[Rfam]
RNA sequence: UGGUCGUGUUGUAGGCAAUUUUGUAGCAUUCCCUUGUAUCUUUCCCAUGCUUUAUACAAAGAUUCUCCAUUUUUUGAAAGUUAGCAAUAUUCUUUGUGGACUA
Numbered sequence: 001u002g003g004u005c006g007u008g009u010u011g012u013a014g015g016c017a018a019u020u021u022u023g024u025a026g027c028a029u030u031c032c033c034u035u036g037u038a039u040c041u042u043u044c045c046c047a048u049g050c051u052u053u054a055u056a057c058a059a060a061g062a063u064u065c066u067c068c069a070u071u072u073u074u075u076g077a078a079a080g081u082u083a084g085c086a087a088u089a090u091u092c093u094u095u096g097u098g099g100a101c102u103a
Stems, first nucleotide, its partner, number of pairs: 001103001003101002005098002058073001060071001
A member of the RNA family "Plant small nucleolar RNA R71" from Lactuca sativa, 103 nucleotides long. The family's consensus secondary structure was predicted with PFOLD. Rfam 15.1 lists 278,378 matches to the family in 216 species. The organism belongs to Lactuca, within Eukaryota.